[Rfam]
RNA sequence: CUCUUAUCUAGAGUGGUGGAGGGACUGGCCCGAUGAAACCCAGCAGCCUGUACAACUGUACAAGGUGCUAAUUCCUGCGGUAUUUAUACCGAGAGAUGAGAG
Numbered sequence: 001c002u003c004u005u006a007u008c009u010a011g012a013g014u015g016g017u018g019g020a021g022g023g024a025c026u027g028g029c030c031c032g033a034u035g036a037a038a039c040c041c042a043g044c045a046g047c048c049u050g051u052a053c054a055a056c057u058g059u060a061c062a063a064g065g066u067g068c069u070a071a072u073u074c075c076u077g078c079g080g081u082a083u084u085u086a087u088a089c090c091g092a093g094a095g096a097u098g099a100g101a102g
Stems, first nucleotide, its partner, number of pairs: 001102008013041001015040003021031003025077001027075002042069004047065002049062004073094001078091005

Rfam assigns this 102-nucleotide RNA sequence from Sporanaerobacter acetigenes to the family "SAM riboswitch aptamer (S box leader)". The SAM riboswitch is found upstream of a number of genes which code for proteins involved in methionine or cysteine biosynthesis in Gram-positive bacteria. Lineage of the source: Bacteria > Tissierellia > Tissierellales > Sporanaerobacter > Sporanaerobacter acetigenes. The family's consensus secondary structure is taken from published work.